[Rfam]
RNA sequence: GUCCUCCUCAACGCUGCGUUUCUAUGCUACGAACGGAGAGACUCGCGCAAGCGUGUCUUUCACACCCUUUUCCUUCGGGAAAACACUUUCUACUAGGCAUAUGAGAAAUUCGGAGAAAUCGCUUCACCUUCAGCCUAUAAUCAUCAGGUCCACCUGGUGUUUGGCUCUGCCGGUAACGGUCUGCGCGUGAUCCUCGCGUCUGUAAUUGGCAUCAGAAAAGCAGGGCGCUGAGCUCCUCUGGUCGCUUGCGAUCGGGGAUAGUUUCAGCGUUUCCUCUGGGAGGGCCAUUACGAAGCUUGUGAAUGAAAUCACUUGAGUGCAAUACGCAGCGUGCAUACCCGUUACUCCCCUUUCGAGAGGAGGAUGGACUGCACAAUUCGAUUCCGAUUACUCUGUCGAGGAC
Numbered sequence: 001g002u003c004c005u006c007c008u009c010a011a012c013g014c015u016g017c018g019u020u021u022c023u024a025u026g027c028u029a030c031g032a033a034c035g036g037a038g039a040g041a042c043u044c045g046c047g048c049a050a051g052c053g054u055g056u057c058u059u060u061c062a063c064a065c066c067c068u069u070u071u072c073c074u075u076c077g078g079g080a081a082a083a084c085a086c087u088u089u090c091u092a093c094u095a096g097g098c099a100u101a102u103g104a105g106a107a108a109u110u111c112g113g114a115g116a117a118a119u120c121g122c123u124u125c126a127c128c129u130u131c132a133g134c135c136u137a138u139a140a141u142c143a144u145c146a147g148g149u150c151c152a153c154c155u156g157g158u159g160u161u162u163g164g165c166u167c168u169g170c171c172g173g174u175a176a177c178g179g180u181c182u183g184c185g186c187g188u189g190a191u192c193c194u195c196g197c198g199u200c201u202g203u204a205a206u207u208g209g210c211a212u213c214a215g216a217a218a219a220g221c222a223g224g225g226c227g228c229u230g231a232g233c234u235c236c237u238c239u240g241g242u243c244g245c246u247u248g249c250g251a252u253c254g255g256g257g258a259u260a261g262u263u264u265c266a267g268c269g270u271u272u273c274c275u276c277u278g279g280g281a282g283g284g285c286c287a288u289u290a291c292g293a294a295g296c297u298u299g300u301g302a303a304u305g306a307a308a309u310c311a312c313u314u315g316a317g318u319g320c321a322a323u324a325c326g327c328a329g330c331g332u333g334c335a336u337a338c339c340c341g342u343u344a345c346u347c348c349c350c351u352u353u354c355g356a357g358a359g360g361a362g363g364a365u366g367g368a369c370u371g372c373a374c375a376a377u378u379c380g381a382u383u384c385c386g387a388u389u390a391c392u393c394u395g396u397c398g399a400g401g402a403c
Base pairs, nucleotide, nucleotide: 001403002402003401004400009395010394013330014329015328016327017326018325019324023101024100025099026098036090037089038088039087040086111386112385113384114383115382121296122295123294124293169180170179171178172177183199184198185197186196187195205289207287208286209285210284222275223274224273331374332373333372334371335370
Overview:
Nuclear RNase P: a 403-nucleotide RNA from Neurospora tetrasperma. The family's RNA type in Rfam is ribozyme. NCBI's taxonomy places the organism under Eukaryota, Ascomycota, Pezizomycotina, Sordariomycetidae, Neurospora tetrasperma. Gene Ontology terms of the family: ribonuclease P activity, tRNA processing and ribonuclease P complex. For this family Rfam cites "Ribonuclease P: unity and diversity in a tRNA processing ribozyme" (Frank and Pace, Annu Rev Biochem, 1998). Ribonuclease P (RNase P) is a ubiquitous endoribonuclease, found in archaea, bacteria and eukarya as well as chloroplasts and mitochondria. Its best characterised activity is the generation of mature 5'-ends of tRNAs by cleaving the 5'-leader elements of precursor-tRNAs.